[Rfam]
RNA sequence: CUGGCGUCGGUGCUGGGCAGUGUCCCCCGGAGCGGGCCUCCGCUCCGUCCCUUCCUGGGGCCCGCACUCUUGCUCCGGGCCUG
Numbered sequence: 001c002u003g004g005c006g007u008c009g010g011u012g013c014u015g016g017g018c019a020g021u022g023u024c025c026c027c028c029g030g031a032g033c034g035g036g037c038c039u040c041c042g043c044u045c046c047g048u049c050c051c052u053u054c055c056u057g058g059g060g061c062c063c064g065c066a067c068u069c070u071u072g073c074u075c076c077g078g079g080c081c082u083g
Stems, first nucleotide, its partner, number of pairs: 003081003007078004012073002015070003020065003025060006032054001034051003038047001